[Rfam]
RNA sequence: CAGAAUGCAUGAUGAUCUCACUUCACCUUGAGCUCUCAGUGGUUACUUGAUUUGAGAAGAAAAGUUCUGAUAUUUGG
Numbered sequence: 001c002a003g004a005a006u007g008c009a010u011g012a013u014g015a016u017c018u019c020a021c022u023u024c025a026c027c028u029u030g031a032g033c034u035c036u037c038a039g040u041g042g043u044u045a046c047u048u049g050a051u052u053u054g055a056g057a058a059g060a061a062a063a064g065u066u067c068u069g070a071u072a073u074u075u076g077g
Stems, first nucleotide, its partner, number of pairs: 001077001003075005
RNA: Small nucleolar RNA SNORD81
Organism: Chinchilla lanigera